This 115-nucleotide RNA from Longispora fulva belongs to the Rfam family "SAM (S-adenosyl methionine) riboswitch aptamer". Its family is annotated with S-adenosylmethionine metabolic process and regulation of gene expression in the Gene Ontology. SAM-IV is a mRNA element that regulates gene expression via direct sensing of S-adenosylmethionine (SAM or AdoMet). SAM-IV riboswitches share conserved nucleotide positions with the previously described SAM-I riboswitches sequence analysis and molecular recognition experiments suggest that SAM-I and SAM-IV riboswitches share similar ligand binding sites, but have different scaffolds.
RNA sequence: GGUCAUGAGCGCCAGCGACAAGCCCCGGCUCGCUGGCCGGCAACCCUCCACCGCGGUGGGGUGCCCCGGGUGAGGACCAGGUCCAGCAUUCGUUCGUGCUGGUCAAGCGCGGACC
Numbered sequence: 001g002g003u004c005a006u007g008a009g010c011g012c013c014a015g016c017g018a019c020a021a022g023c024c025c026c027g028g029c030u031c032g033c034u035g036g037c038c039g040g041c042a043a044c045c046c047u048c049c050a051c052c053g054c055g056g057u058g059g060g061g062u063g064c065c066c067c068g069g070g071u072g073a074g075g076a077c078c079a080g081g082u083c084c085a086g087c088a089u090u091c092g093u094u095c096g097u098g099c100u101g102g103u104c105a106a107g108c109g110c111g112g113a114c115c
Base pairs, nucleotide, nucleotide: 001078002077003076004075009038011037012036013035014034015033016032021030022029039065040064041063044061045060046059048056049055081104083102084101085100086099087098088097089096
Overview:
A reference for the family is Weinberg et al. (2008), "The aptamer core of SAM-IV riboswitches mimics the ligand-binding site of SAM-I riboswitches", RNA. The family has 40 seed sequences and 2,360 matches in Rfam 15.1.